[Rfam]
RNA sequence: UGGAUCGAUGAUGAGGCUGGUGCCGUAUGAAUCACGCAUGAUGAAUGAUACGUGUCUGGAACUCUGAGGUCCAA
Numbered sequence: 001u002g003g004a005u006c007g008a009u010g011a012u013g014a015g016g017c018u019g020g021u022g023c024c025g026u027a028u029g030a031a032u033c034a035c036g037c038a039u040g041a042u043g044a045a046u047g048a049u050a051c052g053u054g055u056c057u058g059g060a061a062c063u064c065u066g067a068g069g070u071c072c073a074a
Base pairs, nucleotide, nucleotide: 002072003071004070005069006068